The family of this 75-nucleotide RNA from Adineta ricciae is "mir-71 microRNA precursor family". The organism belongs to Adineta, within Eukaryota. Rfam links the family to the GO terms miRNA-mediated post-transcriptional gene silencing and RISC complex.

RNA sequence: CUUCUCUGAAAGACAUGGGUAGUGAGAUGUGACUAUUUGAAAAUUUCAUCUUACUAGUCUGUCUUUCCAAAGAAU
Numbered sequence: 001c002u003u004c005u006c007u008g009a010a011a012g013a014c015a016u017g018g019g020u021a022g023u024g025a026g027a028u029g030u031g032a033c034u035a036u037u038u039g040a041a042a043a044u045u046u047c048a049u050c051u052u053a054c055u056a057g058u059c060u061g062u063c064u065u066u067c068c069a070a071a072g073a074a075u
Stems, first nucleotide, its partner, number of pairs: 008067008017059002021055009